[Rfam]
RNA sequence: AUUGGAUCAAUGAUUUUAGUUAAUUAAACUGCGUUAUCUAUCUGCAAAUCUCCUCUAAAGAGUUUGAAGAAAACCAUAAAAACCUGAGAUCCAAU
Numbered sequence: 001a002u003u004g005g006a007u008c009a010a011u012g013a014u015u016u017u018a019g020u021u022a023a024u025u026a027a028a029c030u031g032c033g034u035u036a037u038c039u040a041u042c043u044g045c046a047a048a049u050c051u052c053c054u055c056u057a058a059a060g061a062g063u064u065u066g067a068a069g070a071a072a073a074c075c076a077u078a079a080a081a082a083c084c085u086g087a088g089a090u091c092c093a094a095u
Stems, first nucleotide, its partner, number of pairs: 001095007
About this RNA:
This 95-nucleotide RNA sequence from Raphanus sativus belongs to the Rfam family "Small nucleolar RNA snoR27". NCBI's taxonomy places the organism under Eukaryota, Embryophyta, Mesangiospermae, Gunneridae, Raphanus. The match comes from Rfam's covariance-model search (92 bits). It is annotated as a C/D-box small nucleolar RNA.